[Rfam]
RNA sequence: UGCGUAUUUGCUCAGGCGGAGCUCGACCGCCGCUGACCGAUGUCGAUGCCUUCAUCGACGACCACCGUGAUGAGCAUGGGGUCGAGCCGACCUGCACCGUCCUGGCCGAGGCCGGGAUCCAGGUCGCCCCG
Number, nucleotide and partner (000 for none) at each position: 001u000002g000003c000004g000005u000006a000007u000008u000009u000010g000011c000012u000013c000014a000015g031016g030017c029018g028019g027020a000021g000022c000023u000024c000025g000026a000027c019028c018029g017030c016031c015032g000033c000034u000035g000036a000037c000038c000039g000040a000041u000042g000043u000044c000045g000046a000047u000048g000049c000050c000051u000052u000053c000054a000055u000056c000057g000058a000059c000060g000061a000062c000063c000064a000065c000066c000067g000068u000069g000070a000071u000072g000073a000074g000075c000076a000077u131078g130079g129080g128081g127082u000083c000084g000085a000086g000087c000088c126089g125090a000091c123092c122093u121094g120095c000096a000097c000098c000099g000100u000101c000102c000103u000104g000105g000106c000107c000108g000109a000110g000111g000112c000113c000114g000115g000116g000117a000118u000119c000120c094121a093122g092123g091124u000125c089126g088127c081128c080129c079130c078131g077
RNA: ALIL pseudoknot